[Rfam]
This 125-nucleotide RNA sequence from Octodon degus belongs to the Rfam family "Small Cajal body specific RNA 8". Rfam links the family to the GO terms nucleolus, RNA processing and Cajal body. The literature on the family includes a 2002 paper in EMBO J by Darzacq et al., "Cajal body-specific small nuclear RNAs: a novel class of 2'-O-methylation and pseudouridylation guide RNAs". From the family's description: scaRNAs are a specific class of small nuclear RNAs which localise to the Cajal bodies and guide the modification of RNA polymerase II transcribed spliceosomal RNAs U1, U2, U4, U5 and U12. U92 belong to the H/ACA box class of guide RNAs as it has the predicted hairpin-hinge-hairpin-tail structure, conserved H/ACA-box motifs and is found associated with GAR1. It scores 93 bits against the family's covariance model. NCBI's taxonomy places the organism under Eukaryota, Tetrapoda, Theria, Boreoeutheria, Octodon.
RNA sequence: UGGGAAGCAGAGACACAAACUGGGCUGAAAUCCUACUCUAAUUGUCACUAUAUCUCCCUAGAAUAAAUUGCUUUUUGAUAACCAAGACUGUGAAAUUGCGAUGGACAGACAUGAAGCAGGCCAUU
Numbered sequence: 001u002g003g004g005a006a007g008c009a010g011a012g013a014c015a016c017a018a019a020c021u022g023g024g025c026u027g028a029a030a031u032c033c034u035a036c037u038c039u040a041a042u043u044g045u046c047a048c049u050a051u052a053u054c055u056c057c058c059u060a061g062a063a064u065a066a067a068u069u070g071c072u073u074u075u076u077g078a079u080a081a082c083c084a085a086g087a088c089u090g091u092g093a094a095a096u097u098g099c100g101a102u103g104g105a106c107a108g109a110c111a112u113g114a115a116g117c118a119g120g121c122c123a124u125u
Stems, first nucleotide, its partner, number of pairs: 002058004007053001015045004022038003068119007082104003088098001